[Rfam]
RNA sequence: UUUAUCGUGGUUCGCAAUCCAUCCCACGCAAAAAAACUAGGAGAUU
Numbered sequence: 001u002u003u004a005u006c007g008u009g010g011u012u013c014g015c016a017a018u019c020c021a022u023c024c025c026a027c028g029c030a031a032a033a034a035a036a037c038u039a040g041g042a043g044a045u046u
Base pairs, nucleotide, nucleotide: 006028007027008026009025010024016038
The family of this 46-nucleotide RNA from Candidatus Schmidhempelia bombi is "PreQ1 (pre queuosine) riboswitch aptamer". It scores 50 bits against the family's covariance model. On this family, see Reader et al., J Biol Chem 2004: "Identification of four genes necessary for biosynthesis of the modified nucleoside queuosine". Gene Ontology term of the family: queuosine biosynthetic process. The organism belongs to Candidatus Schmidhempelia bombi, within Bacteria.